[Rfam]
RNA: MIR8675 microRNA precursor family
Organism: Gossypium lobatum
RNA sequence: UGUGGCACUUUGAGAUUGUGCCACAUCAUCACUUGAAAAUUAAAAAAAAAAUAUAUAUAAAUUUUCAGGUGAUGACGUGGUACAAUCUUAGAGUGUCGC
Numbered sequence: 001u002g003u004g005g006c007a008c009u010u011u012g013a014g015a016u017u018g019u020g021c022c023a024c025a026u027c028a029u030c031a032c033u034u035g036a037a038a039a040u041u042a043a044a045a046a047a048a049a050a051a052u053a054u055a056u057a058u059a060a061a062u063u064u065u066c067a068g069g070u071g072a073u074g075a076c077g078u079g080g081u082a083c084a085a086u087c088u089u090a091g092a093g094u095g096u097c098g099c
Stems, first nucleotide, its partner, number of pairs: 003098007012089013026075016